[Rfam]
Annotation: Shown here is a 113-nucleotide RNA from Paenibacillus yonginensis, a member of the family "Glycine riboswitch aptamer". About the family: This family represents the bacterial glycine riboswitch. Glycine riboswitches usually consist of two metabolite-binding aptamers domains with similar structures in tandem. The aptamers cooperatively bind glycine to regulate the expression of downstream genes. In Bacillus subtilis, this riboswitch is found upstream of the gcvT operon which controls glycine degradation.
RNA sequence: GUGAACGUAAAGGGAGAGAUUGCCGUUUUCUAGCGAAAGCGGCAACGCCGAAGGAGCAAACUCCUGCCAUUAGCUGGAGUGAAUCUCUCAGGCAAAAGGACUUUUACCGGACG
Numbered sequence: 001g002u003g004a005a006c007g008u009a010a011a012g013g014g015a016g017a018g019a020u021u022g023c024c025g026u027u028u029u030c031u032a033g034c035g036a037a038a039g040c041g042g043c044a045a046c047g048c049c050g051a052a053g054g055a056g057c058a059a060a061c062u063c064c065u066g067c068c069a070u071u072a073g074c075u076g077g078a079g080u081g082a083a084u085c086u087c088u089c090a091g092g093c094a095a096a097a098g099g100a101c102u103u104u105u106a107c108c109g110g111a112c113g
Stems, first nucleotide, its partner, number of pairs: 007107007020045008047093003050089002054087003060080005